[Rfam]
RNA sequence: AUCAUUACUUGACAACUGAGAGAGAGCACGCCUGUCAGCAUUCAUGCAAGGGACAUGAUUGUGUACAAGCGUGCUCUUUGUCGUUGUCAUGUGAUC
Numbered sequence: 001a002u003c004a005u006u007a008c009u010u011g012a013c014a015a016c017u018g019a020g021a022g023a024g025a026g027c028a029c030g031c032c033u034g035u036c037a038g039c040a041u042u043c044a045u046g047c048a049a050g051g052g053a054c055a056u057g058a059u060u061g062u063g064u065a066c067a068a069g070c071g072u073g074c075u076c077u078u079u080g081u082c083g084u085u086g087u088c089a090u091g092u093g094a095u096c
Stems, first nucleotide, its partner, number of pairs: 010089005016083001018082001021079002024076001026074006033067003
The family of this 96-nucleotide sequence from Nyssa sinensis is "MIR535 microRNA precursor family". Rfam links the family to the GO terms RISC complex and miRNA-mediated post-transcriptional gene silencing. Pairs were carried over by alignment from the consensus structure, which was predicted with RNAalifold.